[Rfam]
A member of the RNA family "Archaeal large subunit ribosomal RNA" from Haloquadratum sp. J07HQX50, 358 nucleotides of a longer RNA. Gene Ontology terms of the family: ribosome and structural constituent of ribosome. Lineage of the source: Archaea > Methanobacteriati > Methanobacteriota > Halobacteria > Haloquadratum. Clan: LSU clan.
RNA sequence: CGGGAUCAACCGACGUUAGGGAAUUCGGCAAGUUAGUCCCGUACCUUCGGAAGAAGGGAUGCCUGCUUGUGAACGAGCAGGUCGCAGUGACUCGGGCGCUCCGACUGUGUAGUAACAACAUAGGUGACCGCAAAUCCGCAAGGACUCGUACGGUCACUGAAUCCUGCCCAGUGCGGGUAUCUGAACACCUCGUACAAGAGGACGAAGGACCCGUUAACGGCGGGGGUAACUAUGACCCUCUUAAGGUAGCGUAGUACCUUGCCGCUUUAGUAGCGGCUUGCAUGAAUGGAUCAACGAGAGCGCCACUGUCCCAACGUUGGGCCCGGUGAACUGUACGUUCCAGUGCGGAGUCUGGAGU
Numbered sequence: 001c002g003g004g005a006u007c008a009a010c011c012g013a014c015g016u017u018a019g020g021g022a023a024u025u026c027g028g029c030a031a032g033u034u035a036g037u038c039c040c041g042u043a044c045c046u047u048c049g050g051a052a053g054a055a056g057g058g059a060u061g062c063c064u065g066c067u068u069g070u071g072a073a074c075g076a077g078c079a080g081g082u083c084g085c086a087g088u089g090a091c092u093c094g095g096g097c098g099c100u101c102c103g104a105c106u107g108u109g110u111a112g113u114a115a116c117a118a119c120a121u122a123g124g125u126g127a128c129c130g131c132a133a134a135u136c137c138g139c140a141a142g143g144a145c146u147c148g149u150a151c152g153g154u155c156a157c158u159g160a161a162u163c164c165u166g167c168c169c170a171g172u173g174c175g176g177g178u179a180u181c182u183g184a185a186c187a188c189c190u191c192g193u194a195c196a197a198g199a200g201g202a203c204g205a206a207g208g209a210c211c212c213g214u215u216a217a218c219g220g221c222g223g224g225g226g227u228a229a230c231u232a233u234g235a236c237c238c239u240c241u242u243a244a245g246g247u248a249g250c251g252u253a254g255u256a257c258c259u260u261g262c263c264g265c266u267u268u269a270g271u272a273g274c275g276g277c278u279u280g281c282a283u284g285a286a287u288g289g290a291u292c293a294a295c296g297a298g299a300g301c302g303c304c305a306c307u308g309u310c311c312c313a314a315c316g317u318u319g320g321g322c323c324c325g326g327u328g329a330a331c332u333g334u335a336c337g338u339u340c341c342a343g344u345g346c347g348g349a350g351u352c353u354g355g356a357g358u
Base pairs, nucleotide, nucleotide: 001325002324003323004322010320011319012318013317014316015315016314017313019311020310021309036060037059038058039057040056045050061082062081063080064079065078066077067076068075069074083087095304096303097302098301099300100299101298102296103295106120107119108118123158124157125156126155127154128153129152130151131148135144136143137142161291162290163289164288166221167220168219171218172217173214174213175212176211177210180209181208182207188201189200190199191198222240223239224238225237226236227235241245261277262276263275264274265273266272339356340355341354342353343352